RNA sequence: AUCUUAUCGCGAGAGGUUAAGGGACUGGCCCGACGACACCUCAGCAACCAGCCAAGUAUGGCACGGUGCUAAUUCCAUUAGGUAGUUGUUUACCUGAAAGAUGAGAA
Numbered sequence: 001a002u003c004u005u006a007u008c009g010c011g012a013g014a015g016g017u018u019a020a021g022g023g024a025c026u027g028g029c030c031c032g033a034c035g036a037c038a039c040c041u042c043a044g045c046a047a048c049c050a051g052c053c054a055a056g057u058a059u060g061g062c063a064c065g066g067u068g069c070u071a072a073u074u075c076c077a078u079u080a081g082g083u084a085g086u087u088g089u090u091u092a093c094c095u096g097a098a099a100g101a102u103g104a105g106a107a
Stems, first nucleotide, its partner, number of pairs: 002106007013042005021031003026077003043070004048066002051062004074099001079096006
RNA: SAM riboswitch aptamer (S box leader)
Organism: Virgibacillus necropolis